RNA sequence: UCGCCCACAAUCUGUUCAAACGGUUUCAACACGGAUGUAUUGGGCUGCGCUGUUCGAAAGUCGCGUAGUCUGAUAGCUAAGCUCUCAAAAUUUGGGGCAUCGGUGCUGGGAUCGUUAUUCGAAUGUAAUCGGUUCGAAAUCCCAAGUGUGGUCUCCUCGCGCUAACCCCGUAGCGUGUGGUUUUUAGCGGGCUCCAGGCCCGCUUUUUUUU
Numbered sequence: 001u002c003g004c005c006c007a008c009a010a011u012c013u014g015u016u017c018a019a020a021c022g023g024u025u026u027c028a029a030c031a032c033g034g035a036u037g038u039a040u041u042g043g044g045c046u047g048c049g050c051u052g053u054u055c056g057a058a059a060g061u062c063g064c065g066u067a068g069u070c071u072g073a074u075a076g077c078u079a080a081g082c083u084c085u086c087a088a089a090a091u092u093u094g095g096g097g098c099a100u101c102g103g104u105g106c107u108g109g110g111a112u113c114g115u116u117a118u119u120c121g122a123a124u125g126u127a128a129u130c131g132g133u134u135c136g137a138a139a140u141c142c143c144a145a146g147u148g149u150g151g152u153c154u155c156c157u158c159g160c161g162c163u164a165a166c167c168c169c170g171u172a173g174c175g176u177g178u179g180g181u182u183u184u185u186a187g188c189g190g191g192c193u194c195c196a197g198g199c200c201c202g203c204u205u206u207u208u209u210u211u
Base pairs, nucleotide, nucleotide: 005151006150007149019116020115021114022113023112024111025110026109027108028107030105031104034101035100036099037098038097039074040073041072045068046067047066048065049064050063052061053060054059077081084096085095086094087093117134119132120131121130155180156179158177159176160175161174162173163172164171186204187203188202189201190200191199192198193197
Shown here is a 211-nucleotide sequence from Caballeronia novacaledonica, a member of the family "Burkholderia sRNA Bp1_Cand871_SIPHT". A reference for the family is Khoo et al. (2012), "Computational discovery and RT-PCR validation of novel Burkholderia conserved and Burkholderia pseudomallei unique sRNAs", BMC Genomics. By type it is a small RNA.